[Rfam]
RNA sequence: AUUCCUUAUGUCGGGUAUCCUCGAUCAAAGCAGCCUCAGAUGCUUCA
Numbered sequence: 001a002u003u004c005c006u007u008a009u010g011u012c013g014g015g016u017a018u019c020c021u022c023g024a025u026c027a028a029a030g031c032a033g034c035c036u037c038a039g040a041u042g043c044u045u046c047a
Stems, first nucleotide, its partner, number of pairs: 010025004032044003
RNA: Plastid-ycf3 group II-D1 intron
Organism: Ricinus communis